[Rfam]
Rfam assigns this 58-nucleotide RNA sequence from Mycobacterium marinum to the family "F6 TB sRNA". On this family, see Arnvig and Young, Mol Microbiol 2009: "Identification of small RNAs in Mycobacterium tuberculosis". Rfam's curators put it in the seed alignment.

RNA sequence: UGGAAAGCCCCGUGUUGUGGUCUGACCCCCGACCCCGACCGCAACGCGGGGCAAUCCG
Numbered sequence: 001u002g003g004a005a006a007g008c009c010c011c012g013u014g015u016u017g018u019g020g021u022c023u024g025a026c027c028c029c030c031g032a033c034c035c036c037g038a039c040c041g042c043a044a045c046g047c048g049g050g051g052c053a054a055u056c057c058g
Base pairs, nucleotide, nucleotide: 002057003056004055007052008051009050010049011048012047013046014045015044016043017042018041019040020039021038022037